[Rfam]
RNA sequence: UACUCCGGUGACACGGGCCGUCUCCCCCAAGAACCACGAUGGUGAAAGGACCCAUACCAAGCCCCACCUCUCCUCCCGCCGCCGACGCGCCCCUCACCCGCCUGGGUGAACAUCGCCAACUCAGCUGGAUUUCGGCCCGGUUGCUUGCCCUACGCUCGCCGCAACACAACCGAAGACAUGCAGCGUGCACCUGCACCAGACAUGCAACGGCCCUCGCAGGGACUGGCAUCCCAGUGCGAGGGCCUGACCACCAAGGAAGAGAACAGCUUCCCG
Numbered sequence: 001u002a003c004u005c006c007g008g009u010g011a012c013a014c015g016g017g018c019c020g021u022c023u024c025c026c027c028c029a030a031g032a033a034c035c036a037c038g039a040u041g042g043u044g045a046a047a048g049g050a051c052c053c054a055u056a057c058c059a060a061g062c063c064c065c066a067c068c069u070c071u072c073c074u075c076c077c078g079c080c081g082c083c084g085a086c087g088c089g090c091c092c093c094u095c096a097c098c099c100g101c102c103u104g105g106g107u108g109a110a111c112a113u114c115g116c117c118a119a120c121u122c123a124g125c126u127g128g129a130u131u132u133c134g135g136c137c138c139g140g141u142u143g144c145u146u147g148c149c150c151u152a153c154g155c156u157c158g159c160c161g162c163a164a165c166a167c168a169a170c171c172g173a174a175g176a177c178a179u180g181c182a183g184c185g186u187g188c189a190c191c192u193g194c195a196c197c198a199g200a201c202a203u204g205c206a207a208c209g210g211c212c213c214u215c216g217c218a219g220g221g222a223c224u225g226g227c228a229u230c231c232c233a234g235u236g237c238g239a240g241g242g243c244c245u246g247a248c249c250a251c252c253a254a255g256g257a258a259g260a261g262a263a264c265a266g267c268u269u270c271c272c273g
Base pairs, nucleotide, nucleotide: 007252008251009250010249016080017079018078020077094109095108096107097106098105099104124184125183126182127181209244210243211242212241213240215238216237217236219232220231221230222229255271256270257269258268259267
Shown here is a 273-nucleotide RNA from Streptomyces sp. TLI_185, a member of the family "Streptomyces sRNA 4677". On this family, see Hindra et al., PLoS One 2014: "Complex intra-operonic dynamics mediated by a small RNA in Streptomyces coelicolor". NCBI's taxonomy places the organism under Bacteria, Actinomycetota, Actinomycetes, Streptomycetaceae, Streptomyces. The match comes from Rfam's covariance-model search (181 bits). By type it is a small RNA. Rfam 15.1 lists 563 matches to the family in 285 species.